[Rfam]
RNA: Trypanosomatid snoRNA TB10Cs4H2
RNA sequence: ACGUCUCUGUCUAACGGGGUGCGGCGCUCUUCCGUCAGCGCACCUCGAUUUCAGGAGACGGAGAGUG
Numbered sequence: 001a002c003g004u005c006u007c008u009g010u011c012u013a014a015c016g017g018g019g020u021g022c023g024g025c026g027c028u029c030u031u032c033c034g035u036c037a038g039c040g041c042a043c044c045u046c047g048a049u050u051u052c053a054g055g056a057g058a059c060g061g062a063g064a065g066u067g
Base pairs, nucleotide, nucleotide: 002060003059004058005057006056007055008054015047016046017045018044019043020042021041022040023039
Dot-bracket structure: .(((((((......(((((((((...............)))))))))......))))))).......